RNA sequence: GGCGAUAAACGGUGUCGUGCAAUAGACACAGCGGACCCGGGGGCAGUACCCGGCGGCUCCACCAAAAAGAGCGGAUUUCAGCCGAUUUCCGCCCUUCCCGAUGGGGCCGAACCAGGAUCGACGUGUGUUGAAAGACGUUACUUUUCGCCCGGCCUGAAUGCGCCGUGAAACCGUUCACAACUCAUAAGAGCAAACGAUAACGACGCUCUUGCUAUUGCUGCGUAA
Numbered sequence: 001g002g003c004g005a006u007a008a009a010c011g012g013u014g015u016c017g018u019g020c021a022a023u024a025g026a027c028a029c030a031g032c033g034g035a036c037c038c039g040g041g042g043g044c045a046g047u048a049c050c051c052g053g054c055g056g057c058u059c060c061a062c063c064a065a066a067a068a069g070a071g072c073g074g075a076u077u078u079c080a081g082c083c084g085a086u087u088u089c090c091g092c093c094c095u096u097c098c099c100g101a102u103g104g105g106g107c108c109g110a111a112c113c114a115g116g117a118u119c120g121a122c123g124u125g126u127g128u129u130g131a132a133a134g135a136c137g138u139u140a141c142u143u144u145u146c147g148c149c150c151g152g153c154c155u156g157a158a159u160g161c162g163c164c165g166u167g168a169a170a171c172c173g174u175u176c177a178c179a180a181c182u183c184a185u186a187a188g189a190g191c192a193a194a195c196g197a198u199a200a201c202g203a204c205g206c207u208c209u210u211g212c213u214a215u216u217g218c219u220g221c222g223u224a225a
Stems, first nucleotide, its partner, number of pairs: 001149005016137003027127003031124003037053005054109007150165004
RNA: permuted transfer-messenger RNA